[Rfam]
RNA sequence: GCCGACUACGAGUAUUCUUGGGUGAAUAAUACUAUAUAAGCGUGUUAUUGCUUGAGAAUACACGUAAUUGCC
Dot-bracket structure: (.(((..(((.((((((((((((.(((((((.(......)..))))))))))))))))))).)))..))).)
Numbered sequence: 001g002c003c004g005a006c007u008a009c010g011a012g013u014a015u016u017c018u019u020g021g022g023u024g025a026a027u028a029a030u031a032c033u034a035u036a037u038a039a040g041c042g043u044g045u046u047a048u049u050g051c052u053u054g055a056g057a058a059u060a061c062a063c064g065u066a067a068u069u070g071c072c
Stems, first nucleotide, its partner, number of pairs: 001072001003070003008065003012061012025049007033040001
Shown here is a 72-nucleotide RNA sequence from Lottia gigantea, a member of the family "mir-137 microRNA precursor family". A reference for the family is Ruby et al. (2007), "Evolution, biogenesis, expression, and target predictions of a substantially expanded set of Drosophila microRNAs", Genome Res. The family has 62 seed sequences and 1,138 matches in Rfam 15.1. Lineage of the source: Eukaryota > Metazoa > Gastropoda > Patellogastropoda > Lottia.